[Rfam]
RNA sequence: AUCGUUCAUCCGACCAGGAUUCUGGUUUGGACGGAAGUAAGGGAAAGUUUCUCUGAAGGAACGCGCC
Dot-bracket structure: ..(((((.(((((.............)))))..[.....(((((.....)))))....)))))]...
A member of the RNA family "Glutamine riboswitch aptamer (glnA leader)" from Leptolyngbya iicbica, 67 nucleotides long. For this family Rfam cites "Structural and Dynamic Basis for Low-Affinity, High-Selectivity Binding of L-Glutamine by the Glutamine Riboswitch" (Ren et al., Cell Rep, 2015). Taxonomically the source falls in Leptolyngbya iicbica (Bacteria, Bacillati, Cyanobacteriota, Leptolyngbya).